RNA: mir-308 microRNA precursor family
RNA sequence: UUCGCAGUAUAUUCUUGUGAGUUUGCUUCCUUUUUAUGGGCCAAAUCACAGGAGUAUACUGUGAG
Numbered sequence: 001u002u003c004g005c006a007g008u009a010u011a012u013u014c015u016u017g018u019g020a021g022u023u024u025g026c027u028u029c030c031u032u033u034u035u036a037u038g039g040g041c042c043a044a045a046u047c048a049c050a051g052g053a054g055u056a057u058a059c060u061g062u063g064a065g
Stems, first nucleotide, its partner, number of pairs: 001065011013053007022045004